Annotation
Shown here is a 65-nucleotide RNA sequence, a member of the family "DUF3800-VIII RNA". Rfam classes the family as a small RNA. About the family: Bacteroidetes, Cyanobacteria, Firmicutes, Planctomycetes (1 example), Proteobacteria, Tenericutes (1 example).
RNA sequence: AUCCCCCCACUUUGCUGAAGCCUUACGUUCCACGCGAGGUACUUAUGUAGGCAAAGUGGGGGGAU
Numbered sequence: 001a002u003c004c005c006c007c008c009a010c011u012u013u014g015c016u017g018a019a020g021c022c023u024u025a026c027g028u029u030c031c032a033c034g035c036g037a038g039g040u041a042c043u044u045a046u047g048u049a050g051g052c053a054a055a056g057u058g059g060g061g062g063g064a065u
Stems, first nucleotide, its partner, number of pairs: 001065011013053004020040005026034003